[Rfam]
RNA sequence: UUACAGUCUAAGUUCGCGACGUCCUGUCGCAAUGCCUGUACUAGCACAUCCUGUGCG
Numbered sequence: 001u002u003a004c005a006g007u008c009u010a011a012g013u014u015c016g017c018g019a020c021g022u023c024c025u026g027u028c029g030c031a032a033u034g035c036c037u038g039u040a041c042u043a044g045c046a047c048a049u050c051c052u053g054u055g056c057g
Stems, first nucleotide, its partner, number of pairs: 002040005008034001016030005044056004
RNA: Bacillaceae-1 RNA
Organism: Oceanobacillus indicireducens